[Rfam]
RNA: Plastid-rps18 3UTR RNA
RNA sequence: AGCCAGUAUUUUACGAUUAAGAAGCAACCGUCUCUUGUAUAGAUCAUGUAUUAAUUU
Numbered sequence: 001a002g003c004c005a006g007u008a009u010u011u012u013a014c015g016a017u018u019a020a021g022a023a024g025c026a027a028c029c030g031u032c033u034c035u036u037g038u039a040u041a042g043a044u045c046a047u048g049u050a051u052u053a054a055u056u057u
Base pairs, nucleotide, nucleotide: 018037019036020035021034022033024031025030